RNA sequence: AAAACAACAAUAGCUUCCUUCUUGUUUUAUCAAGAAGACAUUAUUGCUCAUUUUUUA
Numbered sequence: 001a002a003a004a005c006a007a008c009a010a011u012a013g014c015u016u017c018c019u020u021c022u023u024g025u026u027u028u029a030u031c032a033a034g035a036a037g038a039c040a041u042u043a044u045u046g047c048u049c050a051u052u053u054u055u056u057a
Stems, first nucleotide, its partner, number of pairs: 001053003006048001008046006019036006
The family of this 57-nucleotide RNA sequence from Lactuca saligna is "Plastid-psbA-3 3UTR RNA". The family's consensus secondary structure was predicted with LocARNA. Rfam classes the family as a cis-regulatory element. Its Rfam clan is "Plastid-psbA 3UTR RNA clan". Plastid psbA-3 is a non-coding RNA (ncRNA) present in plastids. Taxonomically the source falls in Lactuca (Eukaryota, Embryophyta, Mesangiospermae, Asteraceae).